[Rfam]
A member of the RNA family "tRNA" from SAR202 cluster bacterium AC-647-P02_OGT_505m, 74 nucleotides long. The match comes from Rfam's covariance-model search (69 bits). By type it is a transfer RNA. On this family, see Hou, Trends Biochem Sci 1993: "The tertiary structure of tRNA and the development of the genetic code". The source organism's lineage runs through Bacteria, Bacillati, Chloroflexota, Dehalococcoidia and SAR202 cluster. Pairs were carried over by alignment from the consensus structure, which is taken from published work.
Nucleotides: 074
Base pairs, nucleotide, nucleotide: 001073002072003071004070005069006068007067010026011025012024013023028044029043030042031041032040050066051065052064053063054062
Number, partner (000 for none) and nucleotide at each position: 001073g002072g003071g004070c005069g006068g007067u008000u009000a010026g011025c012024u013023c014000a015000g016000u017000g018000g019000u020000u021000u022000a023013g024012a025011g026010c027000g028044c029043u030042g031041c032040g033000u034000u035000g036000a037000c038000a039000u040032c041031g042030c043029a044028g045000a046000g047000g048000u049000c050066a051065c052064a053063a054062g055000u056000u057000c058000g059000a060000c061000c062054c063053u064052u065051g066050u067007a068006c069005c070004g071003c072002c073001c074000a